[Rfam]
RNA: ZMP/ZTP riboswitch aptamer (pfl RNA motif)
RNA sequence: CCAGCCCUGCGUAACUGGCGACAAGGAUCUUCGGGUCCAAGGUGGAUUAACCCACCGGGAAGCGCAGGGUGCCGUUUUGCCGUUCGCCUGGGCAGCUGAG
Numbered sequence: 001c002c003a004g005c006c007c008u009g010c011g012u013a014a015c016u017g018g019c020g021a022c023a024a025g026g027a028u029c030u031u032c033g034g035g036u037c038c039a040a041g042g043u044g045g046a047u048u049a050a051c052c053c054a055c056c057g058g059g060a061a062g063c064g065c066a067g068g069g070u071g072c073c074g075u076u077u078u079g080c081c082g083u084u085c086g087c088c089u090g091g092g093c094a095g096c097u098g099a100g
Stems, first nucleotide, its partner, number of pairs: 004070009015059002017088005042055004077095005